[Rfam]
RNA: M-box riboswitch aptamer (ykoK leader)
RNA sequence: CUUUGUUUGAGGUAGGUGAGGCUACUGAUAGGAUAUGGGUUACCGCCGCAAAAAAAUGGAGACAUUAUUCGCUGGUUAGCAGUUGUAAUCGCUAAGGUUUCGACUAGUGUAAUUUCACCGCCUAUCAAAGCUAAAGCUUGAACUAGGUUUUUUUAUU
Numbered sequence: 001c002u003u004u005g006u007u008u009g010a011g012g013u014a015g016g017u018g019a020g021g022c023u024a025c026u027g028a029u030a031g032g033a034u035a036u037g038g039g040u041u042a043c044c045g046c047c048g049c050a051a052a053a054a055a056a057u058g059g060a061g062a063c064a065u066u067a068u069u070c071g072c073u074g075g076u077u078a079g080c081a082g083u084u085g086u087a088a089u090c091g092c093u094a095a096g097g098u099u100u101c102g103a104c105u106a107g108u109g110u111a112a113u114u115u116c117a118c119c120g121c122c123u124a125u126c127a128a129a130g131c132u133a134a135a136g137c138u139u140g141a142a143c144u145a146g147g148u149u150u151u152u153u154u155a156u157u
Base pairs, nucleotide, nucleotide: 005153009149010148011143013095015138016137017136020132021131022130026127027126028125029124030123031122032121039113040112041111042110043109046074048072049071055066056065057064058063082104083103084102085101088098089097090096